[Rfam]
This 96-nucleotide RNA from Paenisporosarcina sp. HGH0030 belongs to the Rfam family "pan motif". Taxonomically the source falls in Paenisporosarcina (Bacteria, Bacillati, Bacilli, Caryophanales). It scores 61 bits against the family's covariance model. The family's consensus secondary structure is taken from published work.

RNA sequence: AGGGCAGUAUCUUUGUAGAACUGCACCUGAUGAAUACAAGAAGAUCUUUAUAAAUUUAAUAAUUCUGCCUUGAUCUUAAUCGACAGGGACGGAGGA
Numbered sequence: 001a002g003g004g005c006a007g008u009a010u011c012u013u014u015g016u017a018g019a020a021c022u023g024c025a026c027c028u029g030a031u032g033a034a035u036a037c038a039a040g041a042a043g044a045u046c047u048u049u050a051u052a053a054a055u056u057u058a059a060u061a062a063u064u065c066u067g068c069c070u071u072g073a074u075c076u077u078a079a080u081c082g083a084c085a086g087g088g089a090c091g092g093a094g095g096a
Base pairs, nucleotide, nucleotide: 001028002027003026004024005023006022007021008020010019011018065092066091067090068088069087070086071085072084074083075082